[Rfam]
RNA: Glycine riboswitch aptamer
RNA sequence: AUGAACCCGGCGGGAGAGUCCGGGUGGUCUUGUUACGUUCUGAAGAUCUCCCGGCGCCGAAGGAGCAACGGCCCCGGAACCUCUCAGGCAAAAGGACCGCCGGGGGAUC
Numbered sequence: 001a002u003g004a005a006c007c008c009g010g011c012g013g014g015a016g017a018g019u020c021c022g023g024g025u026g027g028u029c030u031u032g033u034u035a036c037g038u039u040c041u042g043a044a045g046a047u048c049u050c051c052c053g054g055c056g057c058c059g060a061a062g063g064a065g066c067a068a069c070g071g072c073c074c075c076g077g078a079a080c081c082u083c084u085c086a087g088g089c090a091a092a093a094g095g096a097c098c099g100c101c102g103g104g105g106g107a108u109c
Base pairs, nucleotide, nucleotide: 006104007103008102009101010100011099012098013097020054021053022052023051056089057088058087059085060084063083064082065081069076070075